[Rfam]
RNA: int-alpA RNA
RNA sequence: GCCGCGCCUAGUUCGAUGGUGCGAACGCCGGGCACCCUACCCGGCUGGCGCGGCUCUUAAAUAGGGC
Numbered sequence: 001g002c003c004g005c006g007c008c009u010a011g012u013u014c015g016a017u018g019g020u021g022c023g024a025a026c027g028c029c030g031g032g033c034a035c036c037c038u039a040c041c042c043g044g045c046u047g048g049c050g051c052g053g054c055u056c057u058u059a060a061a062u063a064g065g066g067c
Base pairs, nucleotide, nucleotide: 001054002053003052004051005050006049007048008047011022012021014019028044029043030042031041032040035066036065037064038063039062